RNA sequence: AGCAACAAAGAAAGCAGGAAAGACCGGAUGAAGCGAUAGGGCGGUUCACAAGUAACAUGGUAGUUAUGCUGAUAGAUGUGUCAGAUGGAGUGAAUGCAGAAUAAACAUGAUCCGGCAAAACAGUUGAAGAAAGCAGGAACAACAGGGCAAGAAAGCACAGUGUUCAUACUACUUGAAGAAAAUGAACAGUCUGAACCAAUCAGAACUUUACCCCUCAACCAAGAAGUUGUUAAGCGGAAGAAUCAACGAGCGAGAGGACACAGUACUUUGUUGCU
Numbered sequence: 001a002g003c004a005a006c007a008a009a010g011a012a013a014g015c016a017g018g019a020a021a022g023a024c025c026g027g028a029u030g031a032a033g034c035g036a037u038a039g040g041g042c043g044g045u046u047c048a049c050a051a052g053u054a055a056c057a058u059g060g061u062a063g064u065u066a067u068g069c070u071g072a073u074a075g076a077u078g079u080g081u082c083a084g085a086u087g088g089a090g091u092g093a094a095u096g097c098a099g100a101a102u103a104a105a106c107a108u109g110a111u112c113c114g115g116c117a118a119a120a121c122a123g124u125u126g127a128a129g130a131a132a133g134c135a136g137g138a139a140c141a142a143c144a145g146g147g148c149a150a151g152a153a154a155g156c157a158c159a160g161u162g163u164u165c166a167u168a169c170u171a172c173u174u175g176a177a178g179a180a181a182a183u184g185a186a187c188a189g190u191c192u193g194a195a196c197c198a199a200u201c202a203g204a205a206c207u208u209u210a211c212c213c214c215u216c217a218a219c220c221a222a223g224a225a226g227u228u229g230u231u232a233a234g235c236g237g238a239a240g241a242a243u244c245a246a247c248g249a250g251c252g253a254g255a256g257g258a259c260a261c262a263g264u265a266c267u268u269u270g271u272u273g274c275u
Stems, first nucleotide, its partner, number of pairs: 001275010024115006044095006053066004069084004123247005133235002138231006144215004152209004161188007190204005
RNA: RAGATH-8 RNA